A member of the RNA family "Group II catalytic intron D1-D4-2" from Arenibacter nanhaiticus, 119 nucleotides long. Its family is annotated with Group II intron splicing in the Gene Ontology. The family has 144 seed sequences and 1,231 matches in Rfam 15.1. The base pairs follow the family's consensus structure. The organism belongs to Arenibacter, within Bacteria.
RNA sequence: GAGGGUAGGCCCCUCGGAGUCAAUGUUCAGGCGUGGGCUUCAAACUGCCUUUAUGUUACUAGACUUAAAAGGUCUGGUGAGAAGCGAUAAAGGAAAAGGCAUCCAUACAGAUGUCAAGU
Numbered sequence: 001g002a003g004g005g006u007a008g009g010c011c012c013c014u015c016g017g018a019g020u021c022a023a024u025g026u027u028c029a030g031g032c033g034u035g036g037g038c039u040u041c042a043a044a045c046u047g048c049c050u051u052u053a054u055g056u057u058a059c060u061a062g063a064c065u066u067a068a069a070a071g072g073u074c075u076g077g078u079g080a081g082a083a084g085c086g087a088u089a090a091a092g093g094a095a096a097a098g099g100c101a102u103c104c105a106u107a108c109a110g111a112u113g114u115c116a117a118g119u
Stems, first nucleotide, its partner, number of pairs: 001015005016041006023034004046118001048093002051090004056080001058078003062074004098115006